[Rfam]
RNA sequence: UGUUCCUCAGCCCACGGUGCAGUGCUGCAUCUCUGGUCAGUUGGGAGUCUGAGAUGAAGCACUGUAGCUCGGGAGGGGGUACCU
Number, nucleotide and partner (000 for none) at each position: 001u000002g000003u000004u000005c000006c000007u000008c000009a000010g000011c073012c072013c071014a000015c000016g068017g000018u066019g065020c064021a063022g062023u061024g060025c059026u058027g000028c056029a055030u054031c053032u052033c051034u000035g049036g048037u046038c045039a000040g000041u000042u000043g000044g000045g038046a037047g000048u036049c035050u000051g033052a032053g031054a030055u029056g028057a000058a026059g025060c024061a023062c022063u021064g020065u019066a018067g000068c016069u000070c000071g013072g012073g011074a000075g000076g000077g000078g000079g000080u000081a000082c000083c000084u000

The record is an 84-nucleotide sequence from Polypterus senegalus, which matches "mir-143 microRNA precursor family" in Rfam.
Rfam links the family to the GO terms miRNA-mediated post-transcriptional gene silencing and RISC complex.
On this family, see Chen et al., Genes Dev 2005: "The developmental miRNA profiles of zebrafish as determined by small RNA cloning".
Taxonomically the source falls in Polypterus (Eukaryota, Metazoa, Cladistia, Polypteriformes).
A search with the family's covariance model found it, with a score of 100 bits.